The family of this 180-nucleotide RNA sequence from Virgibacillus pantothenticus is "Lysine riboswitch aptamer".
A search with the family's covariance model found it, with a score of 127 bits.
RNA sequence: AACAAGGAUAGAGGCGCGAUGUUCAAGAGUACACUAUUAGAGGAUAAUGAGGUCCUUAGAAAAUAGUGAAAAGGGGACCUCGCCGAAGUUGUGGAAAACUCAUUGCUUCUACAGCUGGUUCUGCUAUUGAAAAAGUACAGAACUGUCAUAUAGGUGACUAUAUGGAGGGCUAUCUGACGC
Dot-bracket structure: .....((((((....((((.((((.......(((((((.......................)))))))......)))).))))...((((((((((..........))))))))))(((((((.((((.....))))))))))).(((((((......)))))))....)))))).....

From the family's description: Riboswitches are metabolite binding domains within certain messenger RNAs that serve as precision sensors for their corresponding targets. Allosteric rearrangement of mRNA structure is mediated by ligand binding, and this results in modulation of gene expression. This family includes riboswitches that sense lysine in a number of genes involved in lysine metabolism, including lysC.